[Rfam]
Shown here is a 600-nucleotide part of an RNA from Dictyostelium discoideum, a member of the family "Eukaryotic small subunit ribosomal RNA". Rfam links the family to the GO terms structural constituent of ribosome and ribosome. The sequence is in the family's curated seed alignment.
RNA sequence: UAACUGGUUGAUCCUGCCAGUAGUCAUAUGCUUGUCUCAAAGAUUAAGCCAUGCAUGUCUAAGUAUAAAUUCUUGUACGAUGAAACUGCAGACGGCUCAUUACAACAGUGAUAAACUAAUAGACUUUCGGGUUUUACCUUUUGGAUAACCGCAGUAAAUCGGGGCUAAUACAUACAAGCGAUGGGUGACUGGCAACAGAAGCUCAGCGAUUAUUAGCAUUCUACCAAUGCCUUCGGGUUUUGGGUGAUACCGAAUAAUAUUGCAGAUCGAGGAUUUAUCUUCGACAAGUCUACUGUGUCACUGCCCUAUCAACUUUCGAUGGUACGGUAUUGGCCUACCAUGGUUGUAACGGGUAACGGGGAAUUAGGGUUCGAUUCCGGAGAGGGAGCCUGAGAAAUGGCUACCACUUCUACGGAAGGCAGCAGGCGCGCAAAUUACUCAAUCCCAAUACGGGGAAGUAGUGACAAUAAAUAUCAAUACCUAUCCAAUUUUGGAGGGCAAUUGAAAUGAACACAAAUUAAAACUCUUAAUUAACACAAUUGGAGGGCAAGUCUGGUGCCAGCAGCCGCGGUAAUUCCAGCUCCAAUAGCAUAUACUAAA
Numbered sequence: 001u002a003a004c005u006g007g008u009u010g011a012u013c014c015u016g017c018c019a020g021u022a023g024u025c026a027u028a029u030g031c032u033u034g035u036c037u038c039a040a041a042g043a044u045u046a047a048g049c050c051a052u053g054c055a056u057g058u059c060u061a062a063g064u065a066u067a068a069a070u071u072c073u074u075g076u077a078c079g080a081u082g083a084a085a086c087u088g089c090a091g092a093c094g095g096c097u098c099a100u101u102a103c104a105a106c107a108g109u110g111a112u113a114a115a116c117u118a119a120u121a122g123a124c125u126u127u128c129g130g131g132u133u134u135u136a137c138c139u140u141u142u143g144g145a146u147a148a149c150c151g152c153a154g155u156a157a158a159u160c161g162g163g164g165c166u167a168a169u170a171c172a173u174a175c176a177a178g179c180g181a182u183g184g185g186u187g188a189c190u191g192g193c194a195a196c197a198g199a200a201g202c203u204c205a206g207c208g209a210u211u212a213u214u215a216g217c218a219u220u221c222u223a224c225c226a227a228u229g230c231c232u233u234c235g236g237g238u239u240u241u242g243g244g245u246g247a248u249a250c251c252g253a254a255u256a257a258u259a260u261u262g263c264a265g266a267u268c269g270a271g272g273a274u275u276u277a278u279c280u281u282c283g284a285c286a287a288g289u290c291u292a293c294u295g296u297g298u299c300a301c302u303g304c305c306c307u308a309u310c311a312a313c314u315u316u317c318g319a320u321g322g323u324a325c326g327g328u329a330u331u332g333g334c335c336u337a338c339c340a341u342g343g344u345u346g347u348a349a350c351g352g353g354u355a356a357c358g359g360g361g362a363a364u365u366a367g368g369g370u371u372c373g374a375u376u377c378c379g380g381a382g383a384g385g386g387a388g389c390c391u392g393a394g395a396a397a398u399g400g401c402u403a404c405c406a407c408u409u410c411u412a413c414g415g416a417a418g419g420c421a422g423c424a425g426g427c428g429c430g431c432a433a434a435u436u437a438c439u440c441a442a443u444c445c446c447a448a449u450a451c452g453g454g455g456a457a458g459u460a461g462u463g464a465c466a467a468u469a470a471a472u473a474u475c476a477a478u479a480c481c482u483a484u485c486c487a488a489u490u491u492u493g494g495a496g497g498g499c500a501a502u503u504g505a506a507a508u509g510a511a512c513a514c515a516a517a518u519u520a521a522a523a524c525u526c527u528u529a530a531u532u533a534a535c536a537c538a539a540u541u542g543g544a545g546g547g548c549a550a551g552u553c554u555g556g557u558g559c560c561a562g563c564a565g566c567c568g569c570g571g572u573a574a575u576u577c578c579a580g581c582u583c584c585a586a587u588a589g590c591a592u593a594u595a596c597u598a599a600a
Base pairs, nucleotide, nucleotide: 004020005019006018007017008016022597023596024595026594027593028592029591030590031589032588035469037467041462042429048427049426050425052424053423054422057089058088062087063086064085069081070080096382097381098380106303107302108301111298112297115296116295121291122290123289124288140174142172143171149164150163152161154160182205183204184203185202186201189198190197210257211256212255213254214253223245224244225243229238230237231236267284268283269282270281271280272279273278305353306352307351312344313343314342319341320340321339322338323337324336326334357379358378359377360376361372362371363370364369384405385404387402388401389400407418408417409416410415435460437459438458439457443455444454445453446452475504476503477502478500480498481497482496484495485494486493487492511531513528515527517525540586541585542584543583544582545581553580554579555578556577562569563568